[Rfam]
RNA sequence: CCGGGAACCGCACGGCCGCAAAUCCGACCUGUCGAUUCGGGCGCGUCGACUCGACCCGCCCGGACGACUUGGGAUUGCGGAAGUGC
Number, nucleotide and partner (000 for none) at each position: 001c000002c000003g000004g000005g000006a000007a000008c000009c000010g086011c085012a084013c083014g000015g000016c080017c079018g078019c077020a076021a075022a000023u000024c073025c072026g000027a000028c000029c000030u000031g068032u067033c066034g065035a000036u000037u063038c062039g061040g060041g059042c058043g057044c000045g000046u000047c000048g000049a000050c000051u000052c000053g000054a000055c000056c000057c043058g042059c041060c040061c039062g038063g037064a000065c034066g033067a032068c031069u000070u000071g000072g025073g024074a000075u021076u020077g019078c018079g017080g016081a000082a000083g013084u012085g011086c010
Rfam assigns this 86-nucleotide sequence to the family "S15-Halobacteria ribosomal protein leader". For this family Rfam cites "Discovery of 20 novel ribosomal leader candidates in bacteria and archaea" (Eckert and Weinberg, BMC Microbiol, 2020). Rfam's curators put it in the seed alignment.